[Rfam]
RNA sequence: AUGAACCUUCGUUAGGUGAGGCUCCUGUAUGGAGAUAUGCUACUGCCCAAAAAGGUCGAGAGACUCCAAUGGGUCGAACUAGAAUCAUCGAGAUAAGGUGAUUUUUAAUGUAGCUGGAAUAUUCCUAUGCCAUACAGUGCUAAAACUAAACGAAUGGAGGAAAGU
Numbered sequence: 001a002u003g004a005a006c007c008u009u010c011g012u013u014a015g016g017u018g019a020g021g022c023u024c025c026u027g028u029a030u031g032g033a034g035a036u037a038u039g040c041u042a043c044u045g046c047c048c049a050a051a052a053a054g055g056u057c058g059a060g061a062g063a064c065u066c067c068a069a070u071g072g073g074u075c076g077a078a079c080u081a082g083a084a085u086c087a088u089c090g091a092g093a094u095a096a097g098g099u100g101a102u103u104u105u106u107a108a109u110g111u112a113g114c115u116g117g118a119a120u121a122u123u124c125c126u127a128u129g130c131c132a133u134a135c136a137g138u139g140c141u142a143a144a145a146c147u148a149a150a151c152g153a154a155u156g157g158a159g160g161a162a163a164g165u
Base pairs, nucleotide, nucleotide: 006160007159008158009157010156011151012150013096015147016146017145020141021140022139025137026136027135028134029133030132031131032130039114040113041112042111043110045074046073047072048071049070054065055064056063057062081105082104083103084102087099088098089097116125117124118123

The record is a 165-nucleotide RNA sequence from Cerasibacillus terrae, which matches "M-box riboswitch aptamer (ykoK leader)" in Rfam. It scores 149 bits against the family's covariance model. Rfam's curators write: M-box riboswitch, also know as ykoK leader is described as a metaloregulatory RNA that sense divalent metals and function as a genetic control element of genes related to divalent metal transport in bacteria. It was first reported upstream of the B.subtilis ykoK gene and genes with related functions in other bacteria. Rfam 15.1 lists 1,095 matches to the family in 932 species. The organism belongs to Cerasibacillus, within Bacteria.